[Rfam]
RNA: Ribosomal S15 leader
RNA sequence: UUGACUCGCUGAAUUAGUGAUUGGCGGGUUGUAUCUUUAAACUCUUAUUUACUGGAGAAAAACAUGUCACUAACUACAGAACAAACGGCAACUAUCAUUGCUGAUUAUGCAGUUAAAGAA
Numbered sequence: 001u002u003g004a005c006u007c008g009c010u011g012a013a014u015u016a017g018u019g020a021u022u023g024g025c026g027g028g029u030u031g032u033a034u035c036u037u038u039a040a041a042c043u044c045u046u047a048u049u050u051a052c053u054g055g056a057g058a059a060a061a062a063c064a065u066g067u068c069a070c071u072a073a074c075u076a077c078a079g080a081a082c083a084a085a086c087g088g089c090a091a092c093u094a095u096c097a098u099u100g101c102u103g104a105u106u107a108u109g110c111a112g113u114u115a116a117a118g119a120a
Base pairs, nucleotide, nucleotide: 007026008025009024010023011022012021053072054071055070057068